[Rfam]
RNA sequence: CCCGCCACUGUACCUGUCGUGUUGUGCAGUGACUGGUGCAGCCCAGAGGUGAGCUGACAGAAAAAGCCCACUUAGGAAACAGAGUUACUACUUUUGUGGGUAACUUUGUGCUGAAGCCUGCAGACAGGC
Dot-bracket structure: ....((.(((.......(..(.((.....)).)..).......))).))................((..((.(.((...((((((..((.........))..))))))..))..))..)))........
RNA: Small nucleolar RNA SNORA65